RNA sequence: UUGCACAGUGAACACCCAAGUGUGCUUUAUAGUUCCCUUGGCUUUGACUCUGUGCUAGAGCAAUGUCUGUUCUUUUCCUCUGCAUUGAAAGGAGUAUUCAGAAAGUCAGCCCAUUA
Number, nucleotide and partner (000 for none) at each position: 001u000002u000003g055004c054005a053006c052007a051008g050009u000010g049011a000012a000013c046014a045015c000016c041017c040018a039019a038020g037021u000022g035023u000024g033025c032026u031027u000028u000029a000030u000031a026032g025033u024034u000035c022036c000037c020038u019039u018040g017041g016042c000043u000044u000045u014046g013047a000048c000049u010050c008051u007052g006053u005054g004055c003056u000057a073058g072059a071060g070061c069062a068063a000064u000065g000066u000067c000068u062069g061070u060071u059072c058073u057074u000075u000076u000077c000078c000079u102080c101081u100082g099083c094084a000085u000086u000087g000088a000089a000090a000091g000092g000093a000094g083095u000096a000097u000098u000099c082100a081101g080102a079103a000104a000105g000106u000107c000108a000109g000110c000111c000112c000113a000114u000115u000116a000
Source information
Shown here is a 116-nucleotide sequence from Lipotes vexillifer, a member of the family "Small nucleolar RNA SNORA22". It scores 120 bits against the family's covariance model. Rfam describes the family as follows. ACA22 is a member of the H/ACA class of snoRNA that guide the sites of modification of uridines to pseudouridines. The base pairs follow the family's consensus structure, which was predicted with RNAfold.